[Rfam]
A member of the RNA family "Purine riboswitch aptamer" from Clostridium celatum, 102 nucleotides long.
RNA sequence: UAUAAUGAUAAAAAUAACCUUCGUAUAAGCUUGGAAAUAUGGUCCAAGCGUCUCUACAAUAUCACCGUAAAUGAUAUAACUAUGAAGUAAAAAAAUCCACGA
Numbered sequence: 001u002a003u004a005a006u007g008a009u010a011a012a013a014a015u016a017a018c019c020u021u022c023g024u025a026u027a028a029g030c031u032u033g034g035a036a037a038u039a040u041g042g043u044c045c046a047a048g049c050g051u052c053u054c055u056a057c058a059a060u061a062u063c064a065c066c067g068u069a070a071a072u073g074a075u076a077u078a079a080c081u082a083u084g085a086a087g088u089a090a091a092a093a094a095a096u097c098c099a100c101g102a
Base pairs, nucleotide, nucleotide: 019087020086021085022084023083024082025081029049030048031047032046033045034044035043059077060076061075062074063073064072

Source information: Taxonomically the source falls in Clostridium celatum (Bacteria, Bacillati, Eubacteriales, Clostridiaceae). On this family, see Mandal et al., Cell 2003: "Riboswitches Control Fundamental Biochemical Pathways in Bacillus subtilis and Other Bacteria". Pairs were carried over by alignment from the consensus structure, which is taken from published work. Its Rfam clan is "Purine riboswitches".